[Rfam]
This 85-nucleotide RNA from Pseudoclavibacter sp. RFBA6 belongs to the Rfam family "tRNA". NCBI's taxonomy places the organism under Bacteria, Bacillati, Actinomycetota, Micrococcales, Pseudoclavibacter. It scores 51 bits against the family's covariance model.
RNA sequence: GGAGGGCUGUCCGAGCGGCCGAUGGAGCUGGUCUUGAAAACCAGUGGGCAGCAAUGUCUCGUGGGUUCGAAUCCCACGCCCUCCG
Numbered sequence: 001g002g003a004g005g006g007c008u009g010u011c012c013g014a015g016c017g018g019c020c021g022a023u024g025g026a027g028c029u030g031g032u033c034u035u036g037a038a039a040a041c042c043a044g045u046g047g048g049c050a051g052c053a054a055u056g057u058c059u060c061g062u063g064g065g066u067u068c069g070a071a072u073c074c075c076a077c078g079c080c081c082u083c084c085g
Stems, first nucleotide, its partner, number of pairs: 001084007010026004028044005061077005